The record is a 269-nucleotide RNA from Anaerococcus vaginalis, which matches "T-box leader" in Rfam. The match comes from Rfam's covariance-model search (99 bits). The literature on the family includes a 1994 paper in J Bacteriol by Grundy et al., "Interaction between the acceptor end of tRNA and the T box stimulates antitermination in the Bacillus subtilis tyrS gene: a new role for the discriminator base". Taxonomically the source falls in Anaerococcus vaginalis (Bacteria, Bacillati, Tissierellia, Anaerococcus). Rfam classes the family as a cis-regulatory leader.
RNA sequence: AAUAAAACUUUGAUCAGAAGUAAGUAAGUUUUAUAAAUCUUUUAUAGAGAGCUUGUGUGUGGUGGAAACAAGCAAAGAAGUAAAACCGAAUGGAUCUGAGAGUGCUAAGGUGAAAAAAGUACCCGAGGCCGUCUUCCCACGUUAUAGGGAUAUGAUAUGAAAUUAUUUUAAAUUAGUAUCAGAAUAAAGAUAUGUAGGAUUUAUUAAUUUAUUGAAAUUUAUUUUACAUAAAAAGGAUGGCACCGCGAAUUCAACCAUUUGCUCCUUUG
Numbered sequence: 001a002a003u004a005a006a007a008c009u010u011u012g013a014u015c016a017g018a019a020g021u022a023a024g025u026a027a028g029u030u031u032u033a034u035a036a037a038u039c040u041u042u043u044a045u046a047g048a049g050a051g052c053u054u055g056u057g058u059g060u061g062g063u064g065g066a067a068a069c070a071a072g073c074a075a076a077g078a079a080g081u082a083a084a085a086c087c088g089a090a091u092g093g094a095u096c097u098g099a100g101a102g103u104g105c106u107a108a109g110g111u112g113a114a115a116a117a118a119g120u121a122c123c124c125g126a127g128g129c130c131g132u133c134u135u136c137c138c139a140c141g142u143u144a145u146a147g148g149g150a151u152a153u154g155a156u157a158u159g160a161a162a163u164u165a166u167u168u169u170a171a172a173u174u175a176g177u178a179u180c181a182g183a184a185u186a187a188a189g190a191u192a193u194g195u196a197g198g199a200u201u202u203a204u205u206a207a208u209u210u211a212u213u214g215a216a217a218u219u220u221a222u223u224u225u226a227c228a229u230a231a232a233a234a235g236g237a238u239g240g241c242a243c244c245g246c247g248a249a250u251u252c253a254a255c256c257a258u259u260u261g262c263u264c265c266u267u268u269g
Stems, first nucleotide, its partner, number of pairs: 007103002015098004028086005040076003051073006105128002109124002130141003192229009234266004245262005